mir-156 microRNA precursor family: a 93-nucleotide RNA sequence from Ananas comosus. This family represents the plant microRNA (miRNA) precursor mir-156. Rfam 15.1 lists 1,401 matches to the family in 221 species. A search with the family's covariance model found it, with a score of 84 bits.
RNA sequence: UUGACAGAAGAGAGUGAGCACACAUGGUGUUUUCUUGCAUGAGAAAUGGAUGUCAUGCUCGAAGCUAUGCGUGCUCACUGCUCUAUCUGUCAG
Numbered sequence: 001u002u003g004a005c006a007g008a009a010g011a012g013a014g015u016g017a018g019c020a021c022a023c024a025u026g027g028u029g030u031u032u033u034c035u036u037g038c039a040u041g042a043g044a045a046a047u048g049g050a051u052g053u054c055a056u057g058c059u060c061g062a063a064g065c066u067a068u069g070c071g072u073g074c075u076c077a078c079u080g081c082u083c084u085a086u087c088u089g090u091c092a093g
Stems, first nucleotide, its partner, number of pairs: 001093008010083003013079009023069005

A reference for the family is Ambros (2001), "microRNAs: tiny regulators with great potential", Cell.